[Rfam]
Group I catalytic intron: a 224-nucleotide RNA from Neonectria ditissima. Group I catalytic introns are large self-splicing ribozymes.
RNA sequence: UUAUAAUCCUUCUGUUUUAGAAGCAUUUAAUUCUGUAGAGCAUAUGUCAUAAUGUGUUCUUUAAAUCGGGCUAAUUGCUGGAAAAUCUUUAUUAAGAAAAUCAGCAGGAAACCAACGGAUAUAUUUUAUUCCUAGUAGGAUCUUCAGAGACUACACGCCUGACAUCUAAUUAAUGCAAAAGUUACUAGAUGAUGAUAUAGUCCAAUCUCUACUGCAAAGUAGAG
Dot-bracket structure: ....(((.(((((.....))))).))).....(............)...................[[[[.[....((((((....((((....))))...))))))((...(....(((..........))).....)...))...(.(((((...].]]]]..((((.(.(.........).).))))........)))))).....(((((....)))))..
The organism belongs to Neonectria, within Eukaryota. It scores 95 bits against the family's covariance model.